[Rfam]
RNA sequence: GCCGUGCCACUUGUGCCCUCCGGGGCCGAGGACACAUUUCCUUCCAUGGGCUCGAAAGGGCACUAGGCGAAGACGACAGCGCGGUUUUUGAGGAUGUAUUUUGUCCGCGCGAAAUGCCCUUCUCGGCGCCCACCUCGGUGGUGUCCCCGGGGAGAGGAAACAAAAACCAGUCCUAGUU
Numbered sequence: 001g002c003c004g005u006g007c008c009a010c011u012u013g014u015g016c017c018c019u020c021c022g023g024g025g026c027c028g029a030g031g032a033c034a035c036a037u038u039u040c041c042u043u044c045c046a047u048g049g050g051c052u053c054g055a056a057a058g059g060g061c062a063c064u065a066g067g068c069g070a071a072g073a074c075g076a077c078a079g080c081g082c083g084g085u086u087u088u089u090g091a092g093g094a095u096g097u098a099u100u101u102u103g104u105c106c107g108c109g110c111g112a113a114a115u116g117c118c119c120u121u122c123u124c125g126g127c128g129c130c131c132a133c134c135u136c137g138g139u140g141g142u143g144u145c146c147c148c149g150g151g152g153a154g155a156g157g158a159a160a161c162a163a164a165a166a167c168c169a170g171u172c173c174u175a176g177u178u
Base pairs, nucleotide, nucleotide: 005034006033008031010030011029012028013027016024017023018022039076040075041072042071043070044069045067047065048064050061051060052059053058093172094171095170096167097166099165100164101163102162103161104160117157118156119154120153121152122151125148126147131143132142133141134140

The family of this 178-nucleotide part of an RNA from Schizothecium vesticola is "Ascomycota telomerase RNA". It is annotated as a non-coding RNA gene. Its Rfam clan is "Telomerase clan". For this family Rfam cites "The common ancestral core of vertebrate and fungal telomerase RNAs" (Qi et al., Nucleic Acids Res, 2013). The source organism's lineage runs through Eukaryota, Opisthokonta, Ascomycota, leotiomyceta and Schizothecium.